[Rfam]
RNA sequence: GUGUUCGAUGAUGAUUUUUAUUUGUAUGCCUGAUUUCCUUUCGGAUAGUGAAGGCAUCUUUAGUCACUACCUCUUCUGAGACAC
Dot-bracket structure: ((((............................................................................))))

The family of this 84-nucleotide RNA from Bos taurus is "Small nucleolar RNA SNORD11". The family is grouped with related families in Rfam's "SNORD11 clan". It is one of the family's seed sequences. The family has 19 seed sequences and 565 matches in Rfam 15.1. The family's RNA type in Rfam is C/D-box small nucleolar RNA.